[Rfam]
RNA: Bacterial RNase P class B
Organism: Fructilactobacillus fructivorans
RNA sequence: GGUCCUGAGUAAUCGCGGUCAAUGAAUGUUGGCUGAGGAAAGUCCACUCUCGCACAAGCUGAGAUGCUUGUAGUGUUCGUGCUCGGUGAAAAAAUAAGCCGAGGAAUCAUUAAGUUGAUUACGGCGAAAGAACGAGCUAAGGUUAUUGUUACUAUGCUUUAGUAUUUCAUAAAGUGCCACAGAAACGACUAAUUUGAGAAAUCAAAUUAUUGGAACGCAGUAAACCCCGCGAGCGGGAAACCCAAACUUUGGUAGGGGAGCUUCACACACGGAAAUUGAACCAAGUGUGGGGGAAGAACAUUAUGUUCUUGAGAUAGAUGAUUACUACUUAAUCACUUUGUCCUGAAGUUGUGGUUAAGCACAAAACAUGGCUUACAGGG
Numbered sequence: 001g002g003u004c005c006u007g008a009g010u011a012a013u014c015g016c017g018g019u020c021a022a023u024g025a026a027u028g029u030u031g032g033c034u035g036a037g038g039a040a041a042g043u044c045c046a047c048u049c050u051c052g053c054a055c056a057a058g059c060u061g062a063g064a065u066g067c068u069u070g071u072a073g074u075g076u077u078c079g080u081g082c083u084c085g086g087u088g089a090a091a092a093a094a095u096a097a098g099c100c101g102a103g104g105a106a107u108c109a110u111u112a113a114g115u116u117g118a119u120u121a122c123g124g125c126g127a128a129a130g131a132a133c134g135a136g137c138u139a140a141g142g143u144u145a146u147u148g149u150u151a152c153u154a155u156g157c158u159u160u161a162g163u164a165u166u167u168c169a170u171a172a173a174g175u176g177c178c179a180c181a182g183a184a185a186c187g188a189c190u191a192a193u194u195u196g197a198g199a200a201a202u203c204a205a206a207u208u209a210u211u212g213g214a215a216c217g218c219a220g221u222a223a224a225c226c227c228c229g230c231g232a233g234c235g236g237g238a239a240a241c242c243c244a245a246a247c248u249u250u251g252g253u254a255g256g257g258g259a260g261c262u263u264c265a266c267a268c269a270c271g272g273a274a275a276u277u278g279a280a281c282c283a284a285g286u287g288u289g290g291g292g293g294a295a296g297a298a299c300a301u302u303a304u305g306u307u308c309u310u311g312a313g314a315u316a317g318a319u320g321a322u323u324a325c326u327a328c329u330u331a332a333u334c335a336c337u338u339u340g341u342c343c344u345g346a347a348g349u350u351g352u353g354g355u356u357a358a359g360c361a362c363a364a365a366a367c368a369u370g371g372c373u374u375a376c377a378g379g380g
Stems, first nucleotide, its partner, number of pairs: 004380003007376001008326007016035006040374003044371003049237005054071006077232005082103006104122001105120005123227002126168004134159004141153003174225002176221002190209008241257003261292007294310007328359009